This 79-nucleotide RNA from Paenibacillus sp. FSL H8-0548 belongs to the Rfam family "c-di-GMP-I-GGC riboswitch aptamer". The family has 40 seed sequences and 1,298 matches in Rfam 15.1. The base pairs follow the family's consensus structure, which is taken from published work.
[Rfam]
RNA sequence: CACGAUAAUGGCAAAGCUGUCGAAAGGCAGUGACGCAAAGCUAAAGGGCCUUCUGAAAGAUGGCAGCCAGCUACCGAAU
Numbered sequence: 001c002a003c004g005a006u007a008a009u010g011g012c013a014a015a016g017c018u019g020u021c022g023a024a025a026g027g028c029a030g031u032g033a034c035g036c037a038a039a040g041c042u043a044a045a046g047g048g049c050c051u052u053c054u055g056a057a058a059g060a061u062g063g064c065a066g067c068c069a070g071c072u073a074c075c076g077a078a079u
Stems, first nucleotide, its partner, number of pairs: 003076002011036002016031006034066001039072004046068002048064003
Dot-bracket structure: ..((......((...((((((....))))))..[))..((((...(((((...........))).]))))))..))...